[Rfam]
RNA: transfer-messenger RNA
RNA sequence: GGGGAUGUUCCGGUUUCGACCGGAAAGACGGAGGCUUAAGCUGCAGGCGGAGUGCCGAUCUCCUGAUUCGGCAAACACUAUAACUGCCGAAAAUAACGACAGUUUCGAUUACGCCUUAGCUGCAUAAUCGCGGAAUCUGCUUUGCACUGCUCCGAGCGGGGCAUGAUUCCGACGCCAAUCGGGGCUUGCUUUUUAGCGGCGUGUAAACGUUAAAAGGGACUUUUUUUACACUAAGGAUUCGACGCUUUCGGUGCUGCUACCGGAUCCCUACAACCACCUCGCACCGAUAAGCCUGUAGACGCUUCUGAUUCCCUUUUCGGGACGGGGGUUCAAUUCCCCCCAUCUCCAUCA
Numbered sequence: 001g002g003g004g005a006u007g008u009u010c011c012g013g014u015u016u017c018g019a020c021c022g023g024a025a026a027g028a029c030g031g032a033g034g035c036u037u038a039a040g041c042u043g044c045a046g047g048c049g050g051a052g053u054g055c056c057g058a059u060c061u062c063c064u065g066a067u068u069c070g071g072c073a074a075a076c077a078c079u080a081u082a083a084c085u086g087c088c089g090a091a092a093a094u095a096a097c098g099a100c101a102g103u104u105u106c107g108a109u110u111a112c113g114c115c116u117u118a119g120c121u122g123c124a125u126a127a128u129c130g131c132g133g134a135a136u137c138u139g140c141u142u143u144g145c146a147c148u149g150c151u152c153c154g155a156g157c158g159g160g161g162c163a164u165g166a167u168u169c170c171g172a173c174g175c176c177a178a179u180c181g182g183g184g185c186u187u188g189c190u191u192u193u194u195a196g197c198g199g200c201g202u203g204u205a206a207a208c209g210u211u212a213a214a215a216g217g218g219a220c221u222u223u224u225u226u227u228a229c230a231c232u233a234a235g236g237a238u239u240c241g242a243c244g245c246u247u248u249c250g251g252u253g254c255u256g257c258u259a260c261c262g263g264a265u266c267c268c269u270a271c272a273a274c275c276a277c278c279u280c281g282c283a284c285c286g287a288u289a290a291g292c293c294u295g296u297a298g299a300c301g302c303u304u305c306u307g308a309u310u311c312c313c314u315u316u317u318c319g320g321g322a323c324g325g326g327g328g329u330u331c332a333a334u335u336c337c338c339c340c341c342a343u344c345u346c347c348a349u350c351a
Stems, first nucleotide, its partner, number of pairs: 001347007020320008032310002035307001038304004042299001044295005049063004054072005107129005113123002131171005136165001138163002141160004149185006189217006201231006232270002235267004244258001246256001248287003253282002324340005